[Rfam]
RNA: MIR397 microRNA precursor family
RNA sequence: AGCAAAGGCGUGAUUGGGUGCAGUGCUGGUGAACCUUCGAGCCACUUUCAGACUAAUUAAUUAAUGAAUUAAUUAAUUGGUCGGUCGGCAGGUUCAUCAACGCUGCACUCAAUAAUGCCUUUC
Numbered sequence: 001a002g003c004a005a006a007g008g009c010g011u012g013a014u015u016g017g018g019u020g021c022a023g024u025g026c027u028g029g030u031g032a033a034c035c036u037u038c039g040a041g042c043c044a045c046u047u048u049c050a051g052a053c054u055a056a057u058u059a060a061u062u063a064a065u066g067a068a069u070u071a072a073u074u075a076a077u078u079g080g081u082c083g084g085u086c087g088g089c090a091g092g093u094u095c096a097u098c099a100a101c102g103c104u105g106c107a108c109u110c111a112a113u114a115a116u117g118c119c120u121u122u123c
Base pairs, nucleotide, nucleotide: 006120007119008118009117010116011115013113014112015111016110017109018108019107020106021105022104023103024102025101027099028098030096031095032094033093034092035091036090